[Rfam]
Nucleotides: 113
Base pairs, nucleotide, nucleotide: 002112003111004110005109006108007107009105010104011103012102015100016099017098019095020094021093022092023091026088027087028086029085030084031083032082033081034080035079036078037077038076039075040074041073042072043071048066049065050064051063
Number, partner (000 for none) and nucleotide at each position: 001000a002112u003111a004110u005109a006108a007107g008000c009105a010104a011103a012102a013000g014000u015100u016099c017098a018000c019095u020094u021093u022092c023091a024000u025000a026088u027087u028086c029085a030084u031083u032082g033081a034080a035079u036078a037077a038076c039075u040074g041073a042072u043071g044000u045000a046000u047000a048066u049065g050064g051063u052000c053000u054000a055000c056000a057000a058000u059000a060000u061000a062000g063051g064050c065049c066048a067000g068000a069000u070000a071043c072042a073041u074040c075039a076038g077037u078036u079035a080034u081033u082032c083031a084030a085029u086028g087027a088026a089000u090000c091023u092022g093021a094020a095019a096000a097000g098017u099016g100015a101000g102012u103011u104010u105009u106000g107007c108006u109005u110004a111003u112002a113000a
This 113-nucleotide sequence from Trifolium pratense belongs to the Rfam family "MIR2593 microRNA precursor family". Gene Ontology terms of the family: RISC complex and miRNA-mediated post-transcriptional gene silencing. Lineage of the source: Eukaryota > Tracheophyta > Fabaceae > Hologalegina > Trifolium. The match comes from Rfam's covariance-model search (97 bits).